Description: Bacterial RNase P class A: a 385-nucleotide RNA from Orientia tsutsugamushi. The family's consensus secondary structure is taken from published work. Its family is annotated with ribonuclease P activity, tRNA processing and dimeric ribonuclease P complex in the Gene Ontology.

[Rfam]
RNA sequence: GUUGAUAGCUGUAUGGCUACACAAAAUUUAUAGAUUUGUGAGGAAAGUCCGAGCUCCAUAAAAGCAUAGUGCUGGGUAACGCCCAGCAGAAGUAAUUCUAGGGAAAGUACCACAGAGAAUAUACCGCCAAAUAAAUUAAUUUGGUAAGGGUGAAAAGGUGAGGUAAGAGCUUACCGGUAGUUUAGUAAUAAAUUACGCAUGGUAAACCCCACUAGGAGCAAGACCAAAUAGAAGCAACAUAACUAAUAAGUUAGAAGGCGUUUUUAUCUAGUUGCUUGGGUAGGUCGCUUGAGGUAAAUAGUAAUAUUUACCCCAGAUAAAUAGCCGUAAUUAAUAUAUUAAUUAAUAUAUUUUACAGAACUCGGCUUAUAGGCUAUCAAUACAA
Numbered sequence: 001g002u003u004g005a006u007a008g009c010u011g012u013a014u015g016g017c018u019a020c021a022c023a024a025a026a027u028u029u030a031u032a033g034a035u036u037u038g039u040g041a042g043g044a045a046a047g048u049c050c051g052a053g054c055u056c057c058a059u060a061a062a063a064g065c066a067u068a069g070u071g072c073u074g075g076g077u078a079a080c081g082c083c084c085a086g087c088a089g090a091a092g093u094a095a096u097u098c099u100a101g102g103g104a105a106a107g108u109a110c111c112a113c114a115g116a117g118a119a120u121a122u123a124c125c126g127c128c129a130a131a132u133a134a135a136u137u138a139a140u141u142u143g144g145u146a147a148g149g150g151u152g153a154a155a156a157g158g159u160g161a162g163g164u165a166a167g168a169g170c171u172u173a174c175c176g177g178u179a180g181u182u183u184a185g186u187a188a189u190a191a192a193u194u195a196c197g198c199a200u201g202g203u204a205a206a207c208c209c210c211a212c213u214a215g216g217a218g219c220a221a222g223a224c225c226a227a228a229u230a231g232a233a234g235c236a237a238c239a240u241a242a243c244u245a246a247u248a249a250g251u252u253a254g255a256a257g258g259c260g261u262u263u264u265u266a267u268c269u270a271g272u273u274g275c276u277u278g279g280g281u282a283g284g285u286c287g288c289u290u291g292a293g294g295u296a297a298a299u300a301g302u303a304a305u306a307u308u309u310a311c312c313c314c315a316g317a318u319a320a321a322u323a324g325c326c327g328u329a330a331u332u333a334a335u336a337u338a339u340u341a342a343u344u345a346a347u348a349u350a351u352u353u354u355a356c357a358g359a360a361c362u363c364g365g366c367u368u369a370u371a372g373g374c375u376a377u378c379a380a381u382a383c384a385a
Stems, first nucleotide, its partner, number of pairs: 001381010011370001012329007020040006027033002045368003049365005054218004062261001064259002067214005072086005087101001088099004102209002107207002109203003124149002126145007157175006176198001177196008222286004232277006252266005293312008
By type it is a ribozyme.
Lineage of the source: Bacteria > Pseudomonadota > Alphaproteobacteria > Rickettsiaceae > Orientia tsutsugamushi.